RNA sequence: GGUCAAUGAUGACUAGUAAAAGGUCUGAGGGCACAGGGGAAUUGCACUCCAUUACCCUCUUGGCUCCCAGCAGUCCCUAUUCUGUCAUGCCAUAGUAGAGCUCUGACUGAGGAAGAGAUUGCUGACAGUUUAGGAUUAAUUCAGUUCCAGUUCUCCACAGUGAAGGGAGUUGUGGCACUGAAUGUCAUCCAACAGAACUGGUUAAGAGGAGCUGGUGGUAGUGGGGUGUUUUCAUUUGUUGUGUGUGAUCUAAAGUUUUCAAGCUGAGACC
Numbered sequence: 001g002g003u004c005a006a007u008g009a010u011g012a013c014u015a016g017u018a019a020a021a022g023g024u025c026u027g028a029g030g031g032c033a034c035a036g037g038g039g040a041a042u043u044g045c046a047c048u049c050c051a052u053u054a055c056c057c058u059c060u061u062g063g064c065u066c067c068c069a070g071c072a073g074u075c076c077c078u079a080u081u082c083u084g085u086c087a088u089g090c091c092a093u094a095g096u097a098g099a100g101c102u103c104u105g106a107c108u109g110a111g112g113a114a115g116a117g118a119u120u121g122c123u124g125a126c127a128g129u130u131u132a133g134g135a136u137u138a139a140u141u142c143a144g145u146u147c148c149a150g151u152u153c154u155c156c157a158c159a160g161u162g163a164a165g166g167g168a169g170u171u172g173u174g175g176c177a178c179u180g181a182a183u184g185u186c187a188u189c190c191a192a193c194a195g196a197a198c199u200g201g202u203u204a205a206g207a208g209g210a211g212c213u214g215g216u217g218g219u220a221g222u223g224g225g226g227u228g229u230u231u232u233c234a235u236u237u238g239u240u241g242u243g244u245g246u247g248a249u250c251u252a253a254a255g256u257u258u259u260c261a262a263g264c265u266g267a268g269a270c271c
Stems, first nucleotide, its partner, number of pairs: 001271004035251003042248002046227008064211004068124007081110002084107004089102001090100001134189003138185001147175003153169004
Shown here is a 271-nucleotide sequence from Buteo japonicus, a member of the family "Small Cajal body specific RNA 6".
Rfam describes the family as follows. U88 is small Cajal body specific RNA (scaRNA). scaRNAs are a novel class of small nuclear RNAs which localise to the Cajal bodies. U88 is found associated with both fibrillarin and Gar1p and co-localises with coilin in Cajal bodies.
For this family Rfam cites "Cajal body-specific small nuclear RNAs: a novel class of 2'-O-methylation and pseudouridylation guide RNAs" (Darzacq et al., EMBO J, 2002).
Pairs were carried over by alignment from the consensus structure, which is taken from published work.
It is annotated as a small Cajal body RNA.
NCBI's taxonomy places the organism under Eukaryota, Eumetazoa, Accipitrimorphae, Accipitriformes, Buteo.